[Rfam]
RNA sequence: UCCAUCGCGAGGUGGAAUCUGAAGGAAGCUGUAAGCAAAUCUCUGGUCCGACGGACAGAAAUCACAUAGAAGGCUAGGCUGCGAGAGAUAAGUUGGCUGAAAGCAACAAAGUCUAAUAACUAUCACCUUUGUAGUAGCAGAGUAAAUGUGGCGGAUAUAUGGAGAGAAAGAGCGUGCA
Dot-bracket structure: ((((((....)))))).............(((...(...(((((((((((...........((((((.....(((..(((((...((((..((((........))))...))))...................)))))..)))..)))))))))))...))))))....)...)))..
Group II catalytic intron D1-D4-3: a 178-nucleotide RNA from Pseudocoprococcus catus. Taxonomically the source falls in Pseudocoprococcus (Bacteria, Bacillati, Clostridia, Lachnospirales). Rfam 15.1 lists 4,274 matches to the family in 1,585 species. Rfam's curators write: Group II introns are found in rRNA, tRNA and mRNA of organelles in fungi, plants and protists, and also in mRNA in bacteria.